Overview
Alphaproteobacterial sRNA ar35: a 131-nucleotide RNA sequence from Pleomorphomonas diazotrophica.
RNA sequence: GUUCGGGCAAGCAGUCGGCCGGCAAUCUGCAGGCUGCCUGACGGGAUCUGCUCUCCCUUGACCACGGAUGUACUGGCAUUGCGAGAGUGGGCACCAACGAGGUCAGGCAGCAUUGCCUGGCCUUUUUUAUU
Numbered sequence: 001g002u003u004c005g006g007g008c009a010a011g012c013a014g015u016c017g018g019c020c021g022g023c024a025a026u027c028u029g030c031a032g033g034c035u036g037c038c039u040g041a042c043g044g045g046a047u048c049u050g051c052u053c054u055c056c057c058u059u060g061a062c063c064a065c066g067g068a069u070g071u072a073c074u075g076g077c078a079u080u081g082c083g084a085g086a087g088u089g090g091g092c093a094c095c096a097a098c099g100a101g102g103u104c105a106g107g108c109a110g111c112a113u114u115g116c117c118u119g120g121c122c123u124u125u126u127u128u129a130u131u
Base pairs, nucleotide, nucleotide: 001042002041004040005039006038013035014034015033016032047091048090049089050088051087052086053085056081059078060077062076063075064074093130096127097126099124100123101122102121103120104119105118106117107116108115109114

Description: Rfam classes the family as a small RNA. The pairing is the family consensus, mapped onto this sequence. Taxonomically the source falls in Pleomorphomonas (Bacteria, Alphaproteobacteria, Hyphomicrobiales, Pleomorphomonadaceae).